[Rfam]
RNA sequence: CACUAAAGCGGAGAUGACAUUCCUCCCUACCCUAACGCCGCCAAAAAUGCUGGCAGCCUGAAGUACAAGGUACAACCGCCACCCGGCUGAUGAUGUCUACGUCCAC
Numbered sequence: 001c002a003c004u005a006a007a008g009c010g011g012a013g014a015u016g017a018c019a020u021u022c023c024u025c026c027c028u029a030c031c032c033u034a035a036c037g038c039c040g041c042c043a044a045a046a047a048u049g050c051u052g053g054c055a056g057c058c059u060g061a062a063g064u065a066c067a068a069g070g071u072a073c074a075a076c077c078g079c080c081a082c083c084c085g086g087c088u089g090a091u092g093a094u095g096u097c098u099a100c101g102u103c104c105a106c
Stems, first nucleotide, its partner, number of pairs: 010026004016097006078087003
Dot-bracket structure: .........[[[[..((((((.]]]]...................................................(((....)))....)))))).........